RNA sequence: CAAGUAAGUCAGAUAAUCGCUGCUGACAAUUGUCAGGAGAGGAAAGUCCGAGCUUCGCAGAGCAGGGUGCUGGGUAACUCCCAGUGAGGGUGACCUUAAGGAAAGUGCAACAGAGAGAUACCGCCUCAUUUAUGAGGUAAGGGUGGAAAGGUGAGGUAAGAGCUCACCAGCGCAUUGGUGACUUUGCGGCUAUGUAAACCCCACUUGAUGCAAGGCCGAAUAGAGGGACAUACAGGGGCUGCUCGUCCCGUCCCCGGGUGCGCCGCUUGAGCCAUGUAGAAAUACAUGGCCUAGACAGAUGAUUAUCUAAUACAGAACUCGGCUUAUAGAUUUGCUUGCACC
Numbered sequence: 001c002a003a004g005u006a007a008g009u010c011a012g013a014u015a016a017u018c019g020c021u022g023c024u025g026a027c028a029a030u031u032g033u034c035a036g037g038a039g040a041g042g043a044a045a046g047u048c049c050g051a052g053c054u055u056c057g058c059a060g061a062g063c064a065g066g067g068u069g070c071u072g073g074g075u076a077a078c079u080c081c082c083a084g085u086g087a088g089g090g091u092g093a094c095c096u097u098a099a100g101g102a103a104a105g106u107g108c109a110a111c112a113g114a115g116a117g118a119u120a121c122c123g124c125c126u127c128a129u130u131u132a133u134g135a136g137g138u139a140a141g142g143g144u145g146g147a148a149a150g151g152u153g154a155g156g157u158a159a160g161a162g163c164u165c166a167c168c169a170g171c172g173c174a175u176u177g178g179u180g181a182c183u184u185u186g187c188g189g190c191u192a193u194g195u196a197a198a199c200c201c202c203a204c205u206u207g208a209u210g211c212a213a214g215g216c217c218g219a220a221u222a223g224a225g226g227g228a229c230a231u232a233c234a235g236g237g238g239c240u241g242c243u244c245g246u247c248c249c250g251u252c253c254c255c256g257g258g259u260g261c262g263c264c265g266c267u268u269g270a271g272c273c274a275u276g277u278a279g280a281a282a283u284a285c286a287u288g289g290c291c292u293a294g295a296c297a298g299a300u301g302a303u304u305a306u307c308u309a310a311u312a313c314a315g316a317a318c319u320c321g322g323c324u325u326a327u328a329g330a331u332u333u334g335c336u337u338g339c340a341c342c
Stems, first nucleotide, its partner, number of pairs: 001338010011327001012307007020039002023036005044325003048322005053210001055208002060244004065206005070084005085099001086097004100201002105199002107195003121142002123138006150168006170190001171188004177182001214264003225254005235249005271290008
RNA: Bacterial RNase P class A